The family of this 82-nucleotide RNA sequence from Pelusios castaneus is "Small nucleolar RNA U2-19".
Rfam links the family to the GO terms RNA processing and nucleolus.
By type it is a C/D-box small nucleolar RNA.
Pairs were carried over by alignment from the consensus structure, which is taken from published work.
The literature on the family includes a 2004 paper in Curr Biol by Tycowski et al., "Guide RNAs with 5' Caps and Novel Box C/D snoRNA-like Domains for Modification of snRNAs in Metazoa".
The source organism's lineage runs through Eukaryota, Sarcopterygii, Amniota, Testudinata and Pelusios.
RNA sequence: GAUCUGUGAUGAGAAAUAGCCAAAUCUGAGCACCAGUAGAUCAGAUGGUUUGUACGGUGUAUGAUCUAUAACAGUACUGGGA
Numbered sequence: 001g002a003u004c005u006g007u008g009a010u011g012a013g014a015a016a017u018a019g020c021c022a023a024a025u026c027u028g029a030g031c032a033c034c035a036g037u038a039g040a041u042c043a044g045a046u047g048g049u050u051u052g053u054a055c056g057g058u059g060u061a062u063g064a065u066c067u068a069u070a071a072c073a074g075u076a077c078u079g080g081g082a
Stems, first nucleotide, its partner, number of pairs: 030060005038051004